[Rfam]
A member of the RNA family "Small nucleolar RNA SNORD24" from Lachancea mirantina, 88 nucleotides long. The family's RNA type in Rfam is C/D-box small nucleolar RNA.
RNA sequence: CACACAUGAUGCUAUCUAUAUUUGCUACUUCGGACGGGCCUUGCCGGCCCGAAUGAGACUUACCAAUAUCACCAAGAUCUCUGAUGUG
Numbered sequence: 001c002a003c004a005c006a007u008g009a010u011g012c013u014a015u016c017u018a019u020a021u022u023u024g025c026u027a028c029u030u031c032g033g034a035c036g037g038g039c040c041u042u043g044c045c046g047g048c049c050c051g052a053a054u055g056a057g058a059c060u061u062a063c064c065a066a067u068a069u070c071a072c073c074a075a076g077a078u079c080u081c082u083g084a085u086g087u088g
Stems, first nucleotide, its partner, number of pairs: 001088004
Source information: A reference for the family is Qu et al. (1995), "U24, a novel intron-encoded small nucleolar RNA with two 12 nt long, phylogenetically conserved complementarities to 28S rRNA", Nucleic Acids Res.